[Rfam]
RNA sequence: UCAUGAACUUUGUAUCGCGCAUAUUGCUUAGAUGGGCUCUAGAGGAAACAUAAAAA
Numbered sequence: 001u002c003a004u005g006a007a008c009u010u011u012g013u014a015u016c017g018c019g020c021a022u023a024u025u026g027c028u029u030a031g032a033u034g035g036g037c038u039c040u041a042g043a044g045g046a047a048a049c050a051u052a053a054a055a056a
Stems, first nucleotide, its partner, number of pairs: 019037002022034004
Background: Shown here is a 56-nucleotide sequence from Acer yangbiense, a member of the family "Plastid-ndhJ 3UTR RNA". On this family, see Richter et al., Plant Commun 2023: "Retrograde signaling in plants: A critical review focusing on the GUN pathway and beyond". NCBI's taxonomy places the organism under Eukaryota, Spermatophyta, Mesangiospermae, malvids, Acer. Pairs were carried over by alignment from the consensus structure, which was predicted with LocARNA. About the family: Plastid ndhJ is a non-coding RNA (ncRNA) present in plastids. It was identified as a short stem-loop motif in the 3 prime untranslate region (3UTR) of ndhJ gene.